The family of this 114-nucleotide RNA sequence is "Potassium channel RNA editing signal". Its family is annotated with adenosine to inosine editing in the Gene Ontology. It is annotated as a cis-regulatory element. This family represents a group of sequences related to the human potassium channel Kv1.1 hairpin element which directs the efficient modification of an adenosine to inosine by an adenosine deaminase acting on RNA (ADAR). The family's consensus secondary structure is taken from published work.

RNA sequence: GUUGGCUACGGAGACAUGGUCCCCACCACCAUCGGGGGGAAAAUCGUGGGGUCUCUGUGUGCCAUCGCUGGCGUAUUAACCAUUGCCUUACCCGUGCCCGUCAUAGUGUCUAAC
Numbered sequence: 001g002u003u004g005g006c007u008a009c010g011g012a013g014a015c016a017u018g019g020u021c022c023c024c025a026c027c028a029c030c031a032u033c034g035g036g037g038g039g040a041a042a043a044u045c046g047u048g049g050g051g052u053c054u055c056u057g058u059g060u061g062c063c064a065u066c067g068c069u070g071g072c073g074u075a076u077u078a079a080c081c082a083u084u085g086c087c088u089u090a091c092c093c094g095u096g097c098c099c100g101u102c103a104u105a106g107u108g109u110c111u112a113a114c
Stems, first nucleotide, its partner, number of pairs: 001114002004111002007108003011104001013102003018097001021094001037077002040074001049063002